This 75-nucleotide RNA sequence from Cohaesibacter sp. ES.047 belongs to the Rfam family "Makes More Granules Regulator RNA (mmgR)". NCBI's taxonomy places the organism under Bacteria, Pseudomonadati, Alphaproteobacteria, Hyphomicrobiales, Cohaesibacter. Clan: suhB sRNA clan. It scores 58 bits against the family's covariance model. The family's RNA type in Rfam is small RNA. For this family Rfam cites "Evidences of autoregulation of hfq expression in Sinorhizobium meliloti strain 2011" (Sobrero and Valverde, Arch Microbiol, 2011).
RNA sequence: UCCCGCCGCCCUUGCUGGGCGUUUCCUCCUUAGACUUUUCGGGCCGCCAUCGUGCGGCCCUUUUUCUUUUGUGCG
Numbered sequence: 001u002c003c004c005g006c007c008g009c010c011c012u013u014g015c016u017g018g019g020c021g022u023u024u025c026c027u028c029c030u031u032a033g034a035c036u037u038u039u040c041g042g043g044c045c046g047c048c049a050u051c052g053u054g055c056g057g058c059c060c061u062u063u064u065u066c067u068u069u070u071g072u073g074c075g
Base pairs, nucleotide, nucleotide: 008020009019010018011017041060042059043058044057045056046055047054